Shown here is an 89-nucleotide RNA from Allobogoriella caseilytica, a member of the family "Glycine riboswitch aptamer". Its family is annotated with glycine biosynthetic process in the Gene Ontology. Pairs were carried over by alignment from the consensus structure.
RNA sequence: UUAGUCGGCACGGGAGAGCCGCCUUCGCAGGCGCACCGUAGGAGCAACCACCCCGGCAACCUCUCAGGUACCCGCACCGUGCACGACGA
Number, nucleotide and partner (000 for none) at each position: 001u000002u000003a000004g000005u000006c000007g000008g082009c081010a080011c079012g078013g077014g000015a000016g000017a000018g000019c000020c033021g032022c031023c030024u000025u000026c000027g000028c000029a000030g023031g022032c021033g020034c000035a069036c068037c067038g065039u000040a000041g000042g063043a062044g061045c000046a000047a000048c056049c055050a000051c000052c000053c000054c000055g049056g048057c000058a000059a000060c000061c044062u043063c042064u000065c038066a000067g037068g036069u035070a000071c000072c000073c000074g000075c000076a000077c013078c012079g011080u010081g009082c008083a000084c000085g000086a000087c000088g000089a000